Rfam assigns this 369-nucleotide sequence from Propionibacterium sp. oral taxon 192 to the family "transfer-messenger RNA".
RNA sequence: GGGGGUGACUGGUUUCGACUGGGAACGGUAGUUCCGGGAGAAGCGGGCCGAGAAUCCAAGGUCAACUCGUAAAUGUCCCUUGGGAACCAAUAAGUGCCAACAAUUCGCGCACUGACUUCGCUCUCGCCGCCUGAUCGGUGAUCGAAGGGUCAGCCUGGGCGUAGCCUUCCGUCCAGAUCCUGGCCUCAUCUAGAAGGCUUGCUGCAUACCUGCUGUCCGGGUGGGUGUGCGGGACUCAAACCGGACUGGGCCUGUCUGCAACAUGCCGACUUGAGUGCAGGGGCCGAGCAGGACGUCAUGGCGGCUGCGCCCGGAGAAUGCUUGGUUCGCCUUUUCAGGACGCGGGUUCAAUUCCCGCCACCUCCACUG
Numbered sequence: 001g002g003g004g005g006u007g008a009c010u011g012g013u014u015u016c017g018a019c020u021g022g023g024a025a026c027g028g029u030a031g032u033u034c035c036g037g038g039a040g041a042a043g044c045g046g047g048c049c050g051a052g053a054a055u056c057c058a059a060g061g062u063c064a065a066c067u068c069g070u071a072a073a074u075g076u077c078c079c080u081u082g083g084g085a086a087c088c089a090a091u092a093a094g095u096g097c098c099a100a101c102a103a104u105u106c107g108c109g110c111a112c113u114g115a116c117u118u119c120g121c122u123c124u125c126g127c128c129g130c131c132u133g134a135u136c137g138g139u140g141a142u143c144g145a146a147g148g149g150u151c152a153g154c155c156u157g158g159g160c161g162u163a164g165c166c167u168u169c170c171g172u173c174c175a176g177a178u179c180c181u182g183g184c185c186u187c188a189u190c191u192a193g194a195a196g197g198c199u200u201g202c203u204g205c206a207u208a209c210c211u212g213c214u215g216u217c218c219g220g221g222u223g224g225g226u227g228u229g230c231g232g233g234a235c236u237c238a239a240a241c242c243g244g245a246c247u248g249g250g251c252c253u254g255u256c257u258g259c260a261a262c263a264u265g266c267c268g269a270c271u272u273g274a275g276u277g278c279a280g281g282g283g284c285c286g287a288g289c290a291g292g293a294c295g296u297c298a299u300g301g302c303g304g305c306u307g308c309g310c311c312c313g314g315a316g317a318a319u320g321c322u323u324g325g326u327u328c329g330c331c332u333u334u335u336c337a338g339g340a341c342g343c344g345g346g347u348u349c350a351a352u353u354c355c356c357g358c359c360a361c362c363u364c365c366a367c368u369g
Stems, first nucleotide, its partner, number of pairs: 001365007019338007027330001031328001034325005040319001044313005049069004055084007124141006148185006155176007164198006202232009215246005249285005256280003261276002265305004272298002342358005